[Rfam]
The family of this 70-nucleotide RNA is "potC RNA". It is one of the family's seed sequences. The base pairs follow the family's consensus structure, which is taken from published work. Rfam classes the family as a cis-regulatory element.

RNA sequence: UAUAAGAUGCCCACGUCACUCUCCUUUAGGAUCUUUACCCUUUCCUAAAAAUUGUCGUGGGCAUGAAAAA
Numbered sequence: 001u002a003u004a005a006g007a008u009g010c011c012c013a014c015g016u017c018a019c020u021c022u023c024c025u026u027u028a029g030g031a032u033c034u035u036u037a038c039c040c041u042u043u044c045c046u047a048a049a050a051a052u053u054g055u056c057g058u059g060g061g062c063a064u065g066a067a068a069a070a
Stems, first nucleotide, its partner, number of pairs: 007064009017054002027047005